Bacterial RNase P class B: a 403-nucleotide sequence from Bacillus aquiflavi. Ribonuclease P (RNase P) is a ubiquitous endoribonuclease, found in archaea, bacteria and eukarya as well as chloroplasts and mitochondria. Its best characterised activity is the generation of mature 5'-ends of tRNAs by cleaving the 5'-leader elements of precursor-tRNAs. The source organism's lineage runs through Bacteria, Bacillati, Bacilli, Bacillaceae and Bacillus. For this family Rfam cites "Ribonuclease P: unity and diversity in a tRNA processing ribozyme" (Frank and Pace, Annu Rev Biochem, 1998). Rfam classes the family as a ribozyme.
RNA sequence: ACGUUCGGGUAAUCGCUGUAAUAAAGCAAGCAAAUGCUUAUUGCAGAGGAAAGUCCAUGCUCGCACGAGCUGAGAUGCUCGUAGUGUUCGUGCUUAGUGAAACAAUAAGCUAGGGCAGUUAAGGUAUACUUAACUGACGGCAGGGAAAAUGCCUAAGUCAUGAUAGAUAUGGCAUGAAUACCUUUAACAGUGCCACAGUGACGUAGCCUUUUCAGAAAUGAAAAGGGUGGAACGAGGUAAACCCCACGAGCGAGAAACCCAAAUUACGGUAGGGGCACUUUCUCUAAGGAACAACAACGAGGAGAAAGACAGGUUGAAUACAAUCUGUAGAUAGAUGAUUACCGCCUGAGUACGAGACGAAUAGUCACUUGCAGUACAAAGGUACAGAACAUGGCUUACAGAA
Numbered sequence: 001a002c003g004u005u006c007g008g009g010u011a012a013u014c015g016c017u018g019u020a021a022u023a024a025a026g027c028a029a030g031c032a033a034a035u036g037c038u039u040a041u042u043g044c045a046g047a048g049g050a051a052a053g054u055c056c057a058u059g060c061u062c063g064c065a066c067g068a069g070c071u072g073a074g075a076u077g078c079u080c081g082u083a084g085u086g087u088u089c090g091u092g093c094u095u096a097g098u099g100a101a102a103c104a105a106u107a108a109g110c111u112a113g114g115g116c117a118g119u120u121a122a123g124g125u126a127u128a129c130u131u132a133a134c135u136g137a138c139g140g141c142a143g144g145g146a147a148a149a150u151g152c153c154u155a156a157g158u159c160a161u162g163a164u165a166g167a168u169a170u171g172g173c174a175u176g177a178a179u180a181c182c183u184u185u186a187a188c189a190g191u192g193c194c195a196c197a198g199u200g201a202c203g204u205a206g207c208c209u210u211u212u213c214a215g216a217a218a219u220g221a222a223a224a225g226g227g228u229g230g231a232a233c234g235a236g237g238u239a240a241a242c243c244c245c246a247c248g249a250g251c252g253a254g255a256a257a258c259c260c261a262a263a264u265u266a267c268g269g270u271a272g273g274g275g276c277a278c279u280u281u282c283u284c285u286a287a288g289g290a291a292c293a294a295c296a297a298c299g300a301g302g303a304g305a306a307a308g309a310c311a312g313g314u315u316g317a318a319u320a321c322a323a324u325c326u327g328u329a330g331a332u333a334g335a336u337g338a339u340u341a342c343c344g345c346c347u348g349a350g351u352a353c354g355a356g357a358c359g360a361a362u363a364g365u366c367a368c369u370u371g372c373a374g375u376a377c378a379a380a381g382g383u384a385c386a387g388a389a390c391a392u393g394g395c396u397u398a399c400a401g402a403a
Stems, first nucleotide, its partner, number of pairs: 004403003007399001008343007016046009051397003055394005060254005065082006088249005093114006115138001116136008139244002142184004150174004157168003190242002192238003207226008258274003278308007309328008345382003350377004